This 45-nucleotide RNA from Luteolibacter yonseiensis belongs to the Rfam family "Acido-Lenti-1 RNA". The match comes from Rfam's covariance-model search (38 bits). The source organism's lineage runs through Bacteria, Verrucomicrobiota, Verrucomicrobiales, Verrucomicrobiaceae and Luteolibacter.

[Rfam]
RNA sequence: CCCAGGACGUUGUCCUGGGCUAUCACAUUGCGCACCGUUGGUGCU
Numbered sequence: 001c002c003c004a005g006g007a008c009g010u011u012g013u014c015c016u017g018g019g020c021u022a023u024c025a026c027a028u029u030g031c032g033c034a035c036c037g038u039u040g041g042u043g044c045u
Stems, first nucleotide, its partner, number of pairs: 001019008032044005
Dot-bracket structure: ((((((((...))))))))............(((((...))))).
The family's RNA type in Rfam is small RNA.